[Rfam]
RNA sequence: UUGCAUGUGGAAAUUUCUGCUCUUCAUUCCUUUGGGAGCAGAAAUACAUCCGUAACAUGCUAAAUUAAAAAAAGGAGUUAUCAGGGCUGCCAACCUUACAGUAGAGGUUGAGUGGUAGUAUAUUACUCCUACACAC
Number, nucleotide and partner (000 for none) at each position: 001u000002u000003g060004c059005a058006u057007g056008u055009g000010g000011a000012a000013a000014u000015u000016u042017c041018u040019g039020c038021u037022c036023u035024u000025c000026a000027u000028u000029c000030c000031u000032u000033u000034g000035g023036g022037a021038g020039c019040a018041g017042a016043a000044a000045u000046a000047c000048a000049u000050c000051c000052g000053u000054a000055a008056c007057a006058u005059g004060c003061u000062a000063a000064a000065u000066u000067a000068a000069a000070a000071a000072a000073a000074g129075g128076a127077g126078u000079u000080a000081u000082c000083a000084g000085g000086g116087c115088u000089g000090c112091c110092a109093a108094c107095c106096u105097u104098a000099c000100a000101g000102u000103a000104g097105a096106g095107g094108u093109u092110g091111a000112g090113u000114g000115g087116u086117a000118g000119u000120a000121u000122a000123u000124u000125a000126c077127u076128c075129c074130u000131a000132c000133a000134c000135a000136c000
Small nucleolar RNA U109: a 136-nucleotide RNA from Saimiri boliviensis. The family has 26 seed sequences and 1,405 matches in Rfam 15.1. Rfam links the family to the GO terms RNA processing and nucleolus. It is annotated as an H/ACA-box small nucleolar RNA. The source organism's lineage runs through Eukaryota, Bilateria, Sarcopterygii, Theria and Saimiri boliviensis.